[Rfam]
RNA: U7 small nuclear RNA
RNA sequence: AAGGAUUACACCUCUUUUAGAAUUUGUCUAGCAGGUUUCCUGGUUUUUACUGAAACCAAA
Numbered sequence: 001a002a003g004g005a006u007u008a009c010a011c012c013u014c015u016u017u018u019a020g021a022a023u024u025u026g027u028c029u030a031g032c033a034g035g036u037u038u039c040c041u042g043g044u045u046u047u048u049a050c051u052g053a054a055a056c057c058a059a060a
Stems, first nucleotide, its partner, number of pairs: 034057006042051003